Shown here is a 623-nucleotide RNA from Trypanosoma congolense, a member of the family "Trypanosomatid mitochondrial small subunit ribosomal RNA".
A search with the family's covariance model found it, with a score of 351 bits.
Its Rfam clan is "SSU clan".
Gene Ontology terms of the family: structural constituent of ribosome and ribosome.

RNA sequence: GUAGAUUUUUGUCAAUUGUUAGUAUUCAUAUUAAUUUUUUUUUAAGUUUUUUAUUUUUAUAAGUGUUUAUUUAUUAAUAAGGUAUAUAUAUUAAUAUUUAGGAAUAGUUAAUAAUAAUUUAUAAUUUUGAUUAGAUUGAUUUGUUAAUGCUAAUAAAUUGGUGUGGAAAUAUAUUAAAAUAAGUUACAUUUGUGUAUAAUAAAUUAUAUGUAUUAAUAUGUCAGAAAUGGAUGCCAGCCGUUGCGGUAAUUUCUAUGCUUUUAAAUAUUAUACAAGUAUUAUAUAAAAUUGUUAUUGUAAAAUUUAAUCAAUAAAAUAUAUUUUAUAGUUUAUUUGUUUUUAAACACCAUUUGGUAUAUGCAAAUAUAAAAUGAUAGUAAUUAUUAAUUAUAUUAUAUUAUAUUUAUUCAAAUAUUUAAGAUAUUAGAAUUGUUUGAUUUUGACUCCAUGAUAAGGAUUAAAUAAUUGAAAUUGUAUAUAUCAUAAUCAAAAUUUAAUAUUUAUAUAAAGUUAUUAUUAUUAGAUAAAAUAAAAAAUUAAAAAGGUAUUGUUGCCCACCAAUUUUUAUAAUAAAAAUAACGUGCAGUAAUUAAUAUAUUUAUAAAAAUAUAUUUUAAAUGUAA
Numbered sequence: 001g002u003a004g005a006u007u008u009u010u011g012u013c014a015a016u017u018g019u020u021a022g023u024a025u026u027c028a029u030a031u032u033a034a035u036u037u038u039u040u041u042u043u044a045a046g047u048u049u050u051u052u053a054u055u056u057u058u059a060u061a062a063g064u065g066u067u068u069a070u071u072u073a074u075u076a077a078u079a080a081g082g083u084a085u086a087u088a089u090a091u092u093a094a095u096a097u098u099u100a101g102g103a104a105u106a107g108u109u110a111a112u113a114a115u116a117a118u119u120u121a122u123a124a125u126u127u128u129g130a131u132u133a134g135a136u137u138g139a140u141u142u143g144u145u146a147a148u149g150c151u152a153a154u155a156a157a158u159u160g161g162u163g164u165g166g167a168a169a170u171a172u173a174u175u176a177a178a179a180u181a182a183g184u185u186a187c188a189u190u191u192g193u194g195u196a197u198a199a200u201a202a203a204u205u206a207u208a209u210g211u212a213u214u215a216a217u218a219u220g221u222c223a224g225a226a227a228u229g230g231a232u233g234c235c236a237g238c239c240g241u242u243g244c245g246g247u248a249a250u251u252u253c254u255a256u257g258c259u260u261u262u263a264a265a266u267a268u269u270a271u272a273c274a275a276g277u278a279u280u281a282u283a284u285a286a287a288a289u290u291g292u293u294a295u296u297g298u299a300a301a302a303u304u305u306a307a308u309c310a311a312u313a314a315a316a317u318a319u320a321u322u323u324u325a326u327a328g329u330u331u332a333u334u335u336g337u338u339u340u341u342a343a344a345c346a347c348c349a350u351u352u353g354g355u356a357u358a359u360g361c362a363a364a365u366a367u368a369a370a371a372u373g374a375u376a377g378u379a380a381u382u383a384u385u386a387a388u389u390a391u392a393u394u395a396u397a398u399u400a401u402a403u404u405u406a407u408u409c410a411a412a413u414a415u416u417u418a419a420g421a422u423a424u425u426a427g428a429a430u431u432g433u434u435u436g437a438u439u440u441u442g443a444c445u446c447c448a449u450g451a452u453a454a455g456g457a458u459u460a461a462a463u464a465a466u467u468g469a470a471a472u473u474g475u476a477u478a479u480a481u482c483a484u485a486a487u488c489a490a491a492a493u494u495u496a497a498u499a500u501u502u503a504u505a506u507a508a509a510g511u512u513a514u515u516a517u518u519a520u521u522a523g524a525u526a527a528a529a530u531a532a533a534a535a536a537u538u539a540a541a542a543a544g545g546u547a548u549u550g551u552u553g554c555c556c557a558c559c560a561a562u563u564u565u566u567a568u569a570a571u572a573a574a575a576a577u578a579a580c581g582u583g584c585a586g587u588a589a590u591u592a593a594u595a596u597a598u599u600u601a602u603a604a605a606a607a608u609a610u611a612u613u614u615u616a617a618a619u620g621u622a623a
Stems, first nucleotide, its partner, number of pairs: 015587004036080002039077002043073005051065001054062002102409006109400005114391006121384006130375004136368001139365006147357006160348005167341003171337003183295002186292003198280004204274001214264001216262001220258002223254006232248004237244002310334006317327002429537003433533004438528003448517003456488005464481001494513001496511001498509001500507001544555004556583003561577007592613009